[Rfam]
RNA: Small nucleolar RNA Z118/Z121/Z120
Organism: Miscanthus lutarioriparius
RNA sequence: GUUUUGCCGUGAUGUUUCCUAUUAGGACGGUAUCUUAAGGGGAUGGCUAAGUGCACCCCUUCUGAUUAUACCCAAACUGAAUAUGGUUUCUGAGCAAAUC
Dot-bracket structure: (.(((((..............................(((((..............)))))................................))))).)